A member of the RNA family "Pseudomonas sRNA P27" from Azomonas macrocytogenes, 191 nucleotides long.
The literature on the family includes a 2006 paper in Nucleic Acids Res by Livny et al., "Identification of 17 Pseudomonas aeruginosa sRNAs and prediction of sRNA-encoding genes in 10 diverse pathogens using the bioinformatic tool sRNAPredict2".
A search with the family's covariance model found it, with a score of 122 bits.
The family's consensus secondary structure was predicted with WAR.
The source organism's lineage runs through Bacteria, Gammaproteobacteria, Pseudomonadales, Pseudomonadaceae and Azomonas.
RNA sequence: CGGGUUUCACUCCUGGAUAUUACCGGUGCUAUCCGGCUGAGCGCCGGAUCAUCUUUGGUGUCUGAUUCGGUAUGAAUCGGGAGCACCUCUGCGUAGGCUUUAUCUUUUAAGGUUUGCACCACCUACGGUCUUGGAAAGCCCCCGCCCAGGCAGAGACCCCAAUUUUCAAGUAUUUCAGACAAAGUCGAAAU
Numbered sequence: 001c002g003g004g005u006u007u008c009a010c011u012c013c014u015g016g017a018u019a020u021u022a023c024c025g026g027u028g029c030u031a032u033c034c035g036g037c038u039g040a041g042c043g044c045c046g047g048a049u050c051a052u053c054u055u056u057g058g059u060g061u062c063u064g065a066u067u068c069g070g071u072a073u074g075a076a077u078c079g080g081g082a083g084c085a086c087c088u089c090u091g092c093g094u095a096g097g098c099u100u101u102a103u104c105u106u107u108u109a110a111g112g113u114u115u116g117c118a119c120c121a122c123c124u125a126c127g128g129u130c131u132u133g134g135a136a137a138g139c140c141c142c143c144g145c146c147c148a149g150g151c152a153g154a155g156a157c158c159c160c161a162a163u164u165u166u167c168a169a170g171u172a173u174u175u176c177a178g179a180c181a182a183a184g185u186c187g188a189a190a191u
Stems, first nucleotide, its partner, number of pairs: 002159006012150004025053002031049007057087005062080007091145003096140004105136010173190004178185001